[Rfam]
RNA: Small nucleolar RNA Z157/R69/R10
Organism: Oryza brachyantha
RNA sequence: GUUGGAGCGGUGAUGAGCAAAUUUUUUGUGGACUAGAGUUUCUGAUACUACCUCGGUAGUAUUUGAAGACCAAACCCUUGGCUGUCUGAGCCUCCCGU
Dot-bracket structure: ((.(((((..............................((((...((((((....))))))...)))).....................)).))).))